Shown here is a 140-nucleotide sequence from Marmota monax, a member of the family "Small nucleolar RNA SNORA33". By type it is an H/ACA-box small nucleolar RNA. It scores 103 bits against the family's covariance model. About the family: ACA33 is a member of the H/ACA class of snoRNA that guide the sites of modification of uridines to pseudouridines.

[Rfam]
RNA sequence: UAGCCAGCUGGUGAAUCUGCUUACCUGCAAGUGUUUCUGCAGAAAUUUUAGAAACAGCUGUCAAUAGUGAGGCCAUGUAACGAGUCGUAAGGACACUGAAGUCAUUAAGGUCAUUAAGGUACCUGAAAAUGGCUACAACA
Numbered sequence: 001u002a003g004c005c006a007g008c009u010g011g012u013g014a015a016u017c018u019g020c021u022u023a024c025c026u027g028c029a030a031g032u033g034u035u036u037c038u039g040c041a042g043a044a045a046u047u048u049u050a051g052a053a054a055c056a057g058c059u060g061u062c063a064a065u066a067g068u069g070a071g072g073c074c075a076u077g078u079a080a081c082g083a084g085u086c087g088u089a090a091g092g093a094c095a096c097u098g099a100a101g102u103c104a105u106u107a108a109g110g111u112c113a114u115u116a117a118g119g120u121a122c123c124u125g126a127a128a129a130u131g132g133c134u135a136c137a138a139c140a
Base pairs, nucleotide, nucleotide: 003062005060006059007058016043017042018041019040020039072133073132074131075130084120085119086118088116089115090114092112093111094110